[Rfam]
RNA: Bacterial large signal recognition particle RNA
RNA sequence: GUGGGCUAGAUGGGGGCCAGGGGUCCCUUUUGCCGCAAAUCCCCUUUAGGCGGGUCGAAGCCCCGGUGCGUGGUUUGUUUUUCAUGCGUCCGUUGUCUUAGGCGUCGAAGCCUUCCCCAUCAGGAUGGUGGCUUUGUGCGAACCUGGUCAGGCCGGAAGGAGCAGCCAUAAGCGCUCUGCGCCAUGCUUGAAGGACCGGAGGUGGAGCUGAUGGCGAUGGCUCCGCAUGGGAGAUGGAUUGCAAUCCGGGAUGCCCAC
Numbered sequence: 001g002u003g004g005g006c007u008a009g010a011u012g013g014g015g016g017c018c019a020g021g022g023g024u025c026c027c028u029u030u031u032g033c034c035g036c037a038a039a040u041c042c043c044c045u046u047u048a049g050g051c052g053g054g055u056c057g058a059a060g061c062c063c064c065g066g067u068g069c070g071u072g073g074u075u076u077g078u079u080u081u082u083c084a085u086g087c088g089u090c091c092g093u094u095g096u097c098u099u100a101g102g103c104g105u106c107g108a109a110g111c112c113u114u115c116c117c118c119a120u121c122a123g124g125a126u127g128g129u130g131g132c133u134u135u136g137u138g139c140g141a142a143c144c145u146g147g148u149c150a151g152g153c154c155g156g157a158a159g160g161a162g163c164a165g166c167c168a169u170a171a172g173c174g175c176u177c178u179g180c181g182c183c184a185u186g187c188u189u190g191a192a193g194g195a196c197c198g199g200a201g202g203u204g205g206a207g208c209u210g211a212u213g214g215c216g217a218u219g220g221c222u223c224c225g226c227a228u229g230g231g232a233g234a235u236g237g238a239u240u241g242c243a244a245u246c247c248g249g250g251a252u253g254c255c256c257a258c
Stems, first nucleotide, its partner, number of pairs: 001258006007251001009056003012029001013027006033053004062250005070242006078234010091219006099213002101209003110203006118193001120191004126184005136175004145168004153160002